Small nucleolar RNA snoR99: a 102-nucleotide sequence from Carex littledalei.
RNA sequence: AUACCAAAUGGAAUGAAUCGGUUCCAAAUAUUCGACCUCCAUCUACACUUUGUCUGCUAUUGUAUUCAAAUCUUUAGUUGAUCAUUAACGGAUGGGAGAUUC
Numbered sequence: 001a002u003a004c005c006a007a008a009u010g011g012a013a014u015g016a017a018u019c020g021g022u023u024c025c026a027a028a029u030a031u032u033c034g035a036c037c038u039c040c041a042u043c044u045a046c047a048c049u050u051u052g053u054c055u056g057c058u059a060u061u062g063u064a065u066u067c068a069a070a071u072c073u074u075u076a077g078u079u080g081a082u083c084a085u086u087a088a089c090g091g092a093u094g095g096g097a098g099a100u101u102c
Stems, first nucleotide, its partner, number of pairs: 038096006052082003056078004
The family's consensus secondary structure was predicted with WAR. A reference for the family is Marker et al. (2002), "Experimental RNomics: identification of 140 candidates for small non-messenger RNAs in the plant Arabidopsis thaliana", Curr Biol.